RNA sequence: UAGAGAAGUCAGUGAUGGUUUUACCCAGAAUGUCUGAACCUGUCUGAAGCAUCUCAGUGAUGCGGCCUCUGUGGUGCUGAGACUUCUCUGAUA
Number, nucleotide and partner (000 for none) at each position: 001u000002a000003g000004a087005g086006a085007a084008g083009u082010c081011a000012g000013u000014g000015a000016u000017g000018g000019u000020u000021u000022u000023a000024c000025c000026c000027a000028g000029a000030a000031u000032g000033u000034c000035u000036g000037a000038a000039c000040c000041u000042g000043u000044c000045u000046g000047a000048a000049g000050c000051a000052u000053c000054u000055c000056a000057g000058u000059g000060a000061u000062g000063c000064g000065g000066c000067c000068u000069c000070u000071g000072u000073g000074g000075u000076g000077c000078u000079g000080a000081g010082a009083c008084u007085u006086c005087u004088c000089u000090g000091a000092u000093a000